[Rfam]
RNA sequence: GCGCUGGUUUAGCUCAGUGGUUACUUCAACUCGGUUUCUGUUUCACGGCCCGCGGGCCACGAAGUACGAUCCACGGGCGCUGUCCAAUGCUUUU
Numbered sequence: 001g002c003g004c005u006g007g008u009u010u011a012g013c014u015c016a017g018u019g020g021u022u023a024c025u026u027c028a029a030c031u032c033g034g035u036u037u038c039u040g041u042u043u044c045a046c047g048g049c050c051c052g053c054g055g056g057c058c059a060c061g062a063a064g065u066a067c068g069a070u071c072c073a074c075g076g077g078c079g080c081u082g083u084c085c086a087a088u089g090c091u092u093u094u
Base pairs, nucleotide, nucleotide: 002089003088005086006085007084012078013077014076015075017074018073019072020071026069027068

Background: Vault RNA: a 94-nucleotide sequence from Salmo trutta. A search with the family's covariance model found it, with a score of 57 bits. Rfam classes the family as a non-coding RNA gene. The source organism's lineage runs through Eukaryota, Euteleostomi, Salmoniformes, Salmoninae and Salmo. On this family, see Stadler et al., Mol Biol Evol 2009: "Evolution of Vault RNAs". Rfam describes the family as follows. This family of RNAs are found as part of the enigmatic vault ribonucleoprotein complex.